The record is an 85-nucleotide RNA, which matches "skipping-rope RNA" in Rfam. Rfam's curators put it in the seed alignment.
RNA sequence: AGUAGGAGAGGUGGACAAUUUCGGCACGUCCACACACCUUAUGGGUCAAAAGAGAUGAGGGAGAAUGUGCCGCCCUCCUCCUAAA
Number, nucleotide and partner (000 for none) at each position: 001a000002g000003u083004a082005g081006g080007a079008g078009a000010g000011g033012u032013g031014g030015a029016c000017a000018a000019u000020u000021u000022c000023g071024g070025c069026a068027c067028g000029u015030c014031c013032a012033c011034a000035c052036a046037c045038c044039u043040u000041a000042u000043g039044g038045g037046u036047c000048a000049a000050a000051a000052g035053a000054g000055a000056u000057g077058a076059g075060g074061g073062a000063g000064a000065a000066u000067g027068u026069g025070c024071c023072g000073c061074c060075c059076u058077c057078c008079u007080c006081c005082u004083a003084a000085a000